RNA: Streptomyces sRNA 4677
Organism: Streptomyces fungicidicus
RNA sequence: GGGACCGGUGGGCCACUGACCUCCCCGAAGAACCGGGAGAAAGAACCACCCGCCCACCCACCCUCCCCGCCGGAAGGCCCGCGUCACCCGUGCGAGUGACCGGCUUGCAGGCGCGGGACGCGGGCGGCUACGUUCGCCGCGACAACCGCAAACAGAGACGGCCCCCGGCCGGGACUGGCAUCCCGAACGAGGGCCUCACCGAUCAGGAAGCAGAACCUUCCCG
Numbered sequence: 001g002g003g004a005c006c007g008g009u010g011g012g013c014c015a016c017u018g019a020c021c022u023c024c025c026c027g028a029a030g031a032a033c034c035g036g037g038a039g040a041a042a043g044a045a046c047c048a049c050c051c052g053c054c055c056a057c058c059c060a061c062c063c064u065c066c067c068c069g070c071c072g073g074a075a076g077g078c079c080c081g082c083g084u085c086a087c088c089c090g091u092g093c094g095a096g097u098g099a100c101c102g103g104c105u106u107g108c109a110g111g112c113g114c115g116g117g118a119c120g121c122g123g124g125c126g127g128c129u130a131c132g133u134u135c136g137c138c139g140c141g142a143c144a145a146c147c148g149c150a151a152a153c154a155g156a157g158a159c160g161g162c163c164c165c166c167g168g169c170c171g172g173g174a175c176u177g178g179c180a181u182c183c184c185g186a187a188c189g190a191g192g193g194c195c196u197c198a199c200c201g202a203u204c205a206g207g208a209a210g211c212a213g214a215a216c217c218u219u220c221c222c223g
Base pairs, nucleotide, nucleotide: 001200007071008070009069010068011067012066084099085098086097087096089094110138111137112136113135160195161194162193163192164191166189167188171184172183173182174181206221207220208219209218210217